A member of the RNA family "Clostridiales-1 RNA" from Oribacterium sp. oral taxon 078, 173 nucleotides long. Rfam classes the family as a small RNA. The source organism's lineage runs through Bacteria, Bacillota, Clostridia, Lachnospirales and Oribacterium sp. oral taxon 078. It scores 102 bits against the family's covariance model. Pairs were carried over by alignment from the consensus structure, which is taken from published work.

RNA sequence: UGAUUCCAGCAGUGUCGAAAGUUCCUUCUCCGCGACGUGCUUGCACGAGAGGGGAGAAGGAACUUUAUGACACGCCCCCCCCUCAUGAGCAUGCAGCGGGGCGCAGCCACGCGGGAAUGCGAAUGAAGGGCGCGGGGCAGGAGCGGCUGAGCCGCGAAGCCACGCGGGAAUCA
Numbered sequence: 001u002g003a004u005u006c007c008a009g010c011a012g013u014g015u016c017g018a019a020a021g022u023u024c025c026u027u028c029u030c031c032g033c034g035a036c037g038u039g040c041u042u043g044c045a046c047g048a049g050a051g052g053g054g055a056g057a058a059g060g061a062a063c064u065u066u067a068u069g070a071c072a073c074g075c076c077c078c079c080c081c082c083u084c085a086u087g088a089g090c091a092u093g094c095a096g097c098g099g100g101g102c103g104c105a106g107c108c109a110c111g112c113g114g115g116a117a118u119g120c121g122a123a124u125g126a127a128g129g130g131c132g133c134g135g136g137g138c139a140g141g142a143g144c145g146g147c148u149g150a151g152c153c154g155c156g157a158a159g160c161c162a163c164g165c166g167g168g169a170a171u172c173a
Stems, first nucleotide, its partner, number of pairs: 001173007013072004019065013033051001036047004079130003083126004089120004096112003100108003132165003136161003143155004